[Rfam]
RNA sequence: UAAGGAGCAAUAAAAUCUUUCUUGUUCUCUCAAGAGAGUUUAUUGCUCCUUAAUUU
Dot-bracket structure: (((((((((((((.....((((((......))))))...)))))))))))))....
A member of the RNA family "Plastid-psbA-3 3UTR RNA" from Clinacanthus nutans, 56 nucleotides long.
From the family's description: Plastid psbA-3 is a non-coding RNA (ncRNA) present in plastids.
The base pairs follow the family's consensus structure, which was predicted with LocARNA.
The organism belongs to Clinacanthus, within Eukaryota.